[Rfam]
About this RNA:
Small nucleolar RNA SNORA33: a 111-nucleotide RNA sequence from Nannospalax galili. By type it is an H/ACA-box small nucleolar RNA. ACA33 is a member of the H/ACA class of snoRNA that guide the sites of modification of uridines to pseudouridines. Rfam links the family to the GO terms RNA processing and nucleolus. NCBI's taxonomy places the organism under Eukaryota, Gnathostomata, Sarcopterygii, Euarchontoglires, Nannospalax. The family has 28 seed sequences and 1,176 matches in Rfam 15.1.
RNA sequence: AAGCCAGCCAACUGAUCUGCUUAUCUGAAUGUGUAUCUGGCAAUAGUAAGGCCAUGUUACGAGCCUUAAAGACACCUAUAGUCGUUAAGGUCCCUGAGAAUGGCUAUAAUA
Numbered sequence: 001a002a003g004c005c006a007g008c009c010a011a012c013u014g015a016u017c018u019g020c021u022u023a024u025c026u027g028a029a030u031g032u033g034u035a036u037c038u039g040g041c042a043a044u045a046g047u048a049a050g051g052c053c054a055u056g057u058u059a060c061g062a063g064c065c066u067u068a069a070a071g072a073c074a075c076c077u078a079u080a081g082u083c084g085u086u087a088a089g090g091u092c093c094c095u096g097a098g099a100a101u102g103g104c105u106a107u108a109a110u111a
Base pairs, nucleotide, nucleotide: 003041004040005039006038007037018035019034020033051104052103053102054101063091064090065089066088067087068086069085071083072082073081